[Rfam]
RNA sequence: UUUUGCCCAUUGGUAUCUGAUGUCCAGGCUAAAAAAUGUGGCUGGGCAUUUCGUAAGAAGUUGGGCAAAAUCGAUUUACAAAAGCAGGUCUUGCGACACAGCUUGCUUGCUUAAAAAUAUAAGCAUUCUGUUACUUAAUCCCUGCUUACAAUU
Number, nucleotide and partner (000 for none) at each position: 001u000002u000003u000004u067005g066006c065007c064008c063009a062010u000011u000012g000013g000014u000015a000016u000017c000018u000019g050020a049021u048022g047023u046024c045025c044026a043027g042028g000029c040030u000031a039032a000033a000034a000035a000036a000037u000038g000039u031040g029041g000042c027043u026044g025045g024046g023047c022048a021049u020050u019051u000052c000053g000054u000055a000056a000057g000058a000059a000060g000061u000062u009063g008064g007065g006066c005067a004068a000069a000070a000071u000072c000073g000074a000075u000076u000077u000078a000079c000080a000081a000082a000083a146084g145085c144086a143087g142088g000089u000090c000091u000092u000093g000094c000095g000096a000097c000098a131099c130100a129101g128102c000103u000104u125105g124106c123107u122108u121109g120110c000111u000112u000113a000114a000115a000116a000117a000118u000119a000120u109121a108122a107123g106124c105125a104126u000127u000128c101129u100130g099131u098132u000133a000134c000135u000136u000137a000138a000139u000140c000141c000142c087143u086144g085145c084146u083147u000148a000149c000150a000151a000152u000153u000

Notes:
This 153-nucleotide RNA sequence from Pyrus ussuriensis x Pyrus communis belongs to the Rfam family "Small nucleolar RNA F1/F2/snoR5a". It scores 60 bits against the family's covariance model. About the family: This family contains F1, F2 and snoR5a sequences, all of which are members of the the H/ACA class of snoRNA that guide the sites of modification of uridines to pseudouridines. It is annotated as an H/ACA-box small nucleolar RNA. Rfam links the family to the GO terms nucleolus and RNA processing. Taxonomically the source falls in Pyrus (Eukaryota, Streptophyta, Euphyllophyta, Pentapetalae).